[Rfam]
RNA sequence: GCAGGAAGCCUGUGAUGUCUUAGCCGUGGUGUCUGAACCUGGCUGAAGGACUCUUGUGAAGAUUCCGUCCUAGGCUCUGAGGCUUCCACUAAA
Numbered sequence: 001g002c003a004g005g006a007a008g009c010c011u012g013u014g015a016u017g018u019c020u021u022a023g024c025c026g027u028g029g030u031g032u033c034u035g036a037a038c039c040u041g042g043c044u045g046a047a048g049g050a051c052u053c054u055u056g057u058g059a060a061g062a063u064u065c066c067g068u069c070c071u072a073g074g075c076u077c078u079g080a081g082g083c084u085u086c087c088a089c090u091a092a093a
Base pairs, nucleotide, nucleotide: 004087005086006085007084008083009082010081
Background: The family of this 93-nucleotide RNA sequence from Daphoenositta chrysoptera is "Small nucleolar RNA SNORD91 family". On this family, see Huttenhofer et al., EMBO J 2001: "RNomics: an experimental approach that identifies 201 candidates for novel, small, non-messenger RNAs in mouse". By type it is a C/D-box small nucleolar RNA.